[Rfam]
RNA sequence: AAUGCCUGCAUGAAUGCGAGUUUUCGUUUCUUUUUUUACUUUAGCACCUGAAUUCAGGAGGCUUGCGCUAAGAGAAGAAACGAAAAAUCGCGCUGAAAGCCUCCCUCGUGGAGGCUUUUUUUGU
Numbered sequence: 001a002a003u004g005c006c007u008g009c010a011u012g013a014a015u016g017c018g019a020g021u022u023u024u025c026g027u028u029u030c031u032u033u034u035u036u037u038a039c040u041u042u043a044g045c046a047c048c049u050g051a052a053u054u055c056a057g058g059a060g061g062c063u064u065g066c067g068c069u070a071a072g073a074g075a076a077g078a079a080a081c082g083a084a085a086a087a088u089c090g091c092g093c094u095g096a097a098a099g100c101c102u103c104c105c106u107c108g109u110g111g112a113g114g115c116u117u118u119u120u121u122u123g124u
Stems, first nucleotide, its partner, number of pairs: 016091004021086014036071003047058003060066001096118009
Source information:
Phenylalanine leader peptide: a 124-nucleotide sequence from Erwinia mallotivora. Its family is annotated with cellular amino acid metabolic process in the Gene Ontology. The match comes from Rfam's covariance-model search (66 bits). The family's consensus secondary structure was predicted with CMfinder. A reference for the family is Zurawski et al. (1978), "Nucleotide sequence of the leader region of the phenylalanine operon of Escherichia coli", Proc Natl Acad Sci U S A.